[Rfam]
RNA sequence: AGGGCGACCGGGUCGACCGCGCGGGUGACCGUCAGGUAGUCGCGGAUGGCGGUGCCGUGCCGGCCCUC
Numbered sequence: 001a002g003g004g005c006g007a008c009c010g011g012g013u014c015g016a017c018c019g020c021g022c023g024g025g026u027g028a029c030c031g032u033c034a035g036g037u038a039g040u041c042g043c044g045g046a047u048g049g050c051g052g053u054g055c056c057g058u059g060c061c062g063g064c065c066c067u068c
Stems, first nucleotide, its partner, number of pairs: 005062002008059001011030003016026003035056004040052004
RNA: ASdes TB sRNA
Organism: Streptosporangium roseum